[Rfam]
RNA sequence: GUGUCAGUGAUGAUAUCUGUUUCAGUUGGCCUGAAUCUUUUUUGAAAACAUGAGGGGCAACUUCAGUCACUACCUCUUCUGAGACGC
Numbered sequence: 001g002u003g004u005c006a007g008u009g010a011u012g013a014u015a016u017c018u019g020u021u022u023c024a025g026u027u028g029g030c031c032u033g034a035a036u037c038u039u040u041u042u043u044g045a046a047a048a049c050a051u052g053a054g055g056g057g058c059a060a061c062u063u064c065a066g067u068c069a070c071u072a073c074c075u076c077u078u079c080u081g082a083g084a085c086g087c
Base pairs, nucleotide, nucleotide: 001087002086003085004084
RNA: Small nucleolar RNA SNORD11
Organism: Crocodylus porosus